[Rfam]
Bacterial large subunit ribosomal RNA: a 339-nucleotide part of an RNA from Lewinellaceae bacterium SD302. It scores 2692 bits against the family's covariance model.
RNA sequence: GAUAAAAGGGGUGAGAAACCCCUUCGCCGUAAAACUAAGGUUUCCGUAUUCGAUGUUAAUCAGAAUCGGGUUAGUCGGGUCCUAAGGUGUAGCCGCAGGGCGAAGCCGAUGGCAAACGGGUUAAUAUUCCCGUACCUGUCUCCAACGAAAGCGACGGAGAAGUGUAGUCACGAUGUGCUGACGAAAUAGCACGUUGAACCACGAGUAAAAUUGUGGGAUAGUACAGCAAAUACUACGGUAUGCGUUGAUAUGUGAUGAAGCGUCUUCCAAGAAAUAGCGAGGAUGACAGCCCGUACCGUAAACCGACACAGGUAGUUGAGGAGAGUAUCCUAAGGCGCU
Numbered sequence: 001g002a003u004a005a006a007a008g009g010g011g012u013g014a015g016a017a018a019c020c021c022c023u024u025c026g027c028c029g030u031a032a033a034a035c036u037a038a039g040g041u042u043u044c045c046g047u048a049u050u051c052g053a054u055g056u057u058a059a060u061c062a063g064a065a066u067c068g069g070g071u072u073a074g075u076c077g078g079g080u081c082c083u084a085a086g087g088u089g090u091a092g093c094c095g096c097a098g099g100g101c102g103a104a105g106c107c108g109a110u111g112g113c114a115a116a117c118g119g120g121u122u123a124a125u126a127u128u129c130c131c132g133u134a135c136c137u138g139u140c141u142c143c144a145a146c147g148a149a150a151g152c153g154a155c156g157g158a159g160a161a162g163u164g165u166a167g168u169c170a171c172g173a174u175g176u177g178c179u180g181a182c183g184a185a186a187u188a189g190c191a192c193g194u195u196g197a198a199c200c201a202c203g204a205g206u207a208a209a210a211u212u213g214u215g216g217g218a219u220a221g222u223a224c225a226g227c228a229a230a231u232a233c234u235a236c237g238g239u240a241u242g243c244g245u246u247g248a249u250a251u252g253u254g255a256u257g258a259a260g261c262g263u264c265u266u267c268c269a270a271g272a273a274a275u276a277g278c279g280a281g282g283a284u285g286a287c288a289g290c291c292c293g294u295a296c297c298g299u300a301a302a303c304c305g306a307c308a309c310a311g312g313u314a315g316u317u318g319a320g321g322a323g324a325g326u327a328u329c330c331u332a333a334g335g336c337g338c339u
Stems, first nucleotide, its partner, number of pairs: 006024006025337004033317004039297002044069003048066003054062002076293004081112002086107003090103001092101003116133005136289005143282001151278002156267004162261002167256005173194006195228002199216004204212002230249002233247001235245003303312002319331004
The source organism's lineage runs through Bacteria, Pseudomonadati, Bacteroidota, Saprospiria and Lewinellaceae.